[Rfam]
Nucleotides: 080
Stems, first nucleotide, its partner, number of pairs: 012080003016076001018074002021033003045066001047064005053059001
Number, partner (000 for none) and nucleotide at each position: 001000u002000a003000c004000u005000a006000c007000c008000a009000a010000a011000c012080c013079c014078u015000a016076u017000c018074u019073c020000c021033a022032c023031c024000u025000c026000c027000a028000c029000g030000u031023g032022g033021u034000c035000u036000u037000c038000g039000c040000u041000g042000g043000g044000a045066g046000u047064u048063u049062c050061u051060u052000u053059c054000u055000u056000a057000a058000u059053g060051a061050a062049g063048a064047g065000c066045u067000a068000c069000a070000g071000a072000c073019g074018g075000a076016g077000a078014a079013g080012g
A member of the RNA family "drz-agam-1 ribozyme" from Hermetia illucens, 80 nucleotides long. The literature on the family includes a 2009 paper in Science by Webb et al., "Widespread occurrence of self-cleaving ribozymes". Pairs were carried over by alignment from the consensus structure, which is taken from published work. The match comes from Rfam's covariance-model search (44 bits). Gene Ontology term of the family: catalytic activity. Rfam 15.1 lists 10,507 matches to the family in 53 species. The organism belongs to Hermetia, within Eukaryota.